[Rfam]
RNA sequence: GGUCUCCCUUGGUGCAAAUCCAAUCACAUUGAUUUAAUAUGAGAAACAAUUCUCCAUUGGCAUUAAACGAUUAUCCAUUAAGCGGGGAAGUACCUAG
Numbered sequence: 001g002g003u004c005u006c007c008c009u010u011g012g013u014g015c016a017a018a019u020c021c022a023a024u025c026a027c028a029u030u031g032a033u034u035u036a037a038u039a040u041g042a043g044a045a046a047c048a049a050u051u052c053u054c055c056a057u058u059g060g061c062a063u064u065a066a067a068c069g070a071u072u073a074u075c076c077a078u079u080a081a082g083c084g085g086g087g088a089a090g091u092a093c094c095u096a097g
Stems, first nucleotide, its partner, number of pairs: 009023004052087004056078002059075002062072001064070001
Dot-bracket structure: ........((((.......))))............................((((((.((.(.(.....).).)).)).....))))..........